RNA sequence: AUCACCUGGGAUCUUGUUAAAAUACAGGUUCUGAUUCAGCAAGUCUGGGGUGGGUUCCAAGAUUUUGCAUUUCUAACAAGUUCCCAGGUGAUGCUGG
Numbered sequence: 001a002u003c004a005c006c007u008g009g010g011a012u013c014u015u016g017u018u019a020a021a022a023u024a025c026a027g028g029u030u031c032u033g034a035u036u037c038a039g040c041a042a043g044u045c046u047g048g049g050g051u052g053g054g055u056u057c058c059a060a061g062a063u064u065u066u067g068c069a070u071u072u073c074u075a076a077c078a079a080g081u082u083c084c085c086a087g088g089u090g091a092u093g094c095u096g097g
Base pairs, nucleotide, nucleotide: 003090004089005088008084009083010082013080014079015078016077017076018075019074020072021071022070025067026066027065028064030062031061032060
The family of this 97-nucleotide RNA from Crocuta crocuta is "mir-544 microRNA precursor family". Rfam links the family to the GO terms RISC complex and miRNA-mediated post-transcriptional gene silencing. It scores 73 bits against the family's covariance model. The source organism's lineage runs through Eukaryota, Metazoa, Dipnotetrapodomorpha, Hyaenidae and Crocuta. On this family, see Chiang et al., Genes Dev 2010: "Mammalian microRNAs: experimental evaluation of novel and previously annotated genes".